[Rfam]
RNA sequence: AACUUAACUAUGAACAGAAGAGUAGAUUUAUCACAACAGCAAAGCGAGUUACGGAUAGUGUGAGCGUAGCCUAGUUGAUAAUCGAACCACACCUGGGAGUUGAAUUUCUGAAAGAAGUAAGAAGUUCCGGUAAUGCCGUUAUCAUUUAAGUUAUUUAUAACUUACUGAGGUAUUGCUAUGUGAAUAGCGUACGAACCAGAGGUGGAACCACGAUGAAUCGUCCUCUUA
Number, nucleotide and partner (000 for none) at each position: 001a000002a000003c000004u000005u000006a000007a100008c099009u000010a000011u000012g000013a000014a000015c095016a094017g093018a000019a000020g000021a000022g000023u000024a000025g083026a082027u081028u080029u000030a000031u000032c000033a000034c000035a000036a000037c000038a072039g071040c000041a000042a000043a000044g000045c000046g000047a000048g070049u069050u068051a067052c066053g065054g000055a000056u000057a000058g000059u000060g000061u000062g000063a000064g000065c053066g052067u051068a050069g049070c048071c039072u038073a000074g000075u000076u000077g000078a000079u000080a028081a027082u026083c025084g000085a000086a000087c000088c000089a000090c000091a000092c000093c017094u016095g015096g000097g000098a000099g008100u007101u000102g000103a126104a125105u124106u123107u122108c121109u120110g000111a000112a000113a000114g000115a000116a000117g000118u000119a000120a109121g108122a107123a106124g105125u104126u103127c000128c138129g137130g136131u000132a000133a000134u000135g000136c130137c129138g128139u000140u000141a000142u000143c000144a000145u000146u000147u000148a000149a000150g000151u000152u000153a000154u000155u000156u000157a000158u000159a000160a000161c000162u000163u000164a000165c000166u000167g000168a000169g000170g192171u191172a190173u189174u000175g188176c187177u186178a000179u000180g000181u000182g000183a000184a000185u000186a177187g176188c175189g173190u172191a171192c170193g000194a000195a000196c000197c000198a000199g225200a224201g223202g222203u000204g000205g000206a000207a000208c000209c000210a221211c220212g219213a218214u000215g000216a000217a000218u213219c212220g211221u210222c202223c201224u200225c199226u000227u000228a000
Shown here is a 228-nucleotide RNA sequence from Pediococcus argentinicus, a member of the family "T-box leader".
Rfam 15.1 lists 19,395 matches to the family in 1,923 species.
Uncharged tRNA acts as the effector for transcription antitermination of genes in the T-box leader family.
Lineage of the source: Bacteria > Bacillati > Bacilli > Lactobacillales > Pediococcus.